[Rfam]
7SK RNA: a 284-nucleotide sequence from Upupa epops.
RNA sequence: GGAUGUGAGGGCGACCUGGCUGCGACAUCUGUCACCCCACUGAUCACCAGGGUUGAUCGGACUGGCUAGGCCGGUGUCUCCUUCCUCCCUCACUGCUCCAUGUGCAUCCCUUCGGAAGCUGCACACUCAGUCAAAGAGGACGACCCUCCCCGACAGAGAUGAACUGUCGAGGGUAUACAGCAGCUGCGCUCCCCUGCUAGAACCCCCAAACAAGCUCAAGGUCCCUUUGUAAGAGAAUGUAGGGGAGUCAAGUGUCCAGGACACAGACUGCAUGGGGCAGUCUG
Numbered sequence: 001g002g003a004u005g006u007g008a009g010g011g012c013g014a015c016c017u018g019g020c021u022g023c024g025a026c027a028u029c030u031g032u033c034a035c036c037c038c039a040c041u042g043a044u045c046a047c048c049a050g051g052g053u054u055g056a057u058c059g060g061a062c063u064g065g066c067u068a069g070g071c072c073g074g075u076g077u078c079u080c081c082u083u084c085c086u087c088c089c090u091c092a093c094u095g096c097u098c099c100a101u102g103u104g105c106a107u108c109c110c111u112u113c114g115g116a117a118g119c120u121g122c123a124c125a126c127u128c129a130g131u132c133a134a135a136g137a138g139g140a141c142g143a144c145c146c147u148c149c150c151c152g153a154c155a156g157a158g159a160u161g162a163a164c165u166g167u168c169g170a171g172g173g174u175a176u177a178c179a180g181c182a183g184c185u186g187c188g189c190u191c192c193c194c195u196g197c198u199a200g201a202a203c204c205c206c207c208a209a210a211c212a213a214g215c216u217c218a219a220g221g222u223c224c225c226u227u228u229g230u231a232a233g234a235g236a237a238u239g240u241a242g243g244g245g246a247g248u249c250a251a252g253u254g255u256c257c258a259g260g261a262c263a264c265a266g267a268c269u270g271c272a273u274g275g276g277g278c279a280g281u282c283u284g
Stems, first nucleotide, its partner, number of pairs: 001099003005093007013084002018081002024078006031071003035065002038060001042058004046053002107162002110158003113130001115128002118126001131153002138149003183253003189247002192244006204235001206233001210230005267281005
Pairs were carried over by alignment from the consensus structure, which is taken from published work. NCBI's taxonomy places the organism under Eukaryota, Eumetazoa, Craniata, Amniota, Upupa. By type it is a non-coding RNA gene.